[Rfam]
RNA sequence: UUGCUUUUGUCUUGGCCCUACCAUCCCUACAUGGUUGGGUGUAUGUAACAGAAGCUAAAUAGUGCCCUCUGGGUGUCAGGCUACUUCGGUGCUGGGUGUUCAAAUCCUAGUAUUAUCCUCUGGGCUUGAAACAUUU
Numbered sequence: 001u002u003g004c005u006u007u008u009g010u011c012u013u014g015g016c017c018c019u020a021c022c023a024u025c026c027c028u029a030c031a032u033g034g035u036u037g038g039g040u041g042u043a044u045g046u047a048a049c050a051g052a053a054g055c056u057a058a059a060u061a062g063u064g065c066c067c068u069c070u071g072g073g074u075g076u077c078a079g080g081c082u083a084c085u086u087c088g089g090u091g092c093u094g095g096g097u098g099u100u101c102a103a104a105u106c107c108u109a110g111u112a113u114u115a116u117c118c119u120c121u122g123g124g125c126u127u128g129a130a131a132c133a134u135u136u
Stems, first nucleotide, its partner, number of pairs: 003055008015040004021034004065072002076129005081123002088114002092110005